[Rfam]
RNA sequence: UGCCGCUGCCCUUAUGGGCGUUUCCUCCCUAGACUUCAGACCGCGCUGCUUCAACGCAGUGCGGUUUUUUUUGCCUGAA
Numbered sequence: 001u002g003c004c005g006c007u008g009c010c011c012u013u014a015u016g017g018g019c020g021u022u023u024c025c026u027c028c029c030u031a032g033a034c035u036u037c038a039g040a041c042c043g044c045g046c047u048g049c050u051u052c053a054a055c056g057c058a059g060u061g062c063g064g065u066u067u068u069u070u071u072u073g074c075c076u077g078a079a
Stems, first nucleotide, its partner, number of pairs: 008019004041064009
This 79-nucleotide sequence from Jiella endophytica belongs to the Rfam family "Makes More Granules Regulator RNA (mmgR)". The literature on the family includes a 2010 paper in BMC Genomics by Schluter et al., "A genome-wide survey of sRNAs in the symbiotic nitrogen-fixing alpha-proteobacterium Sinorhizobium meliloti". Taxonomically the source falls in Jiella (Bacteria, Pseudomonadati, Alphaproteobacteria, Hyphomicrobiales).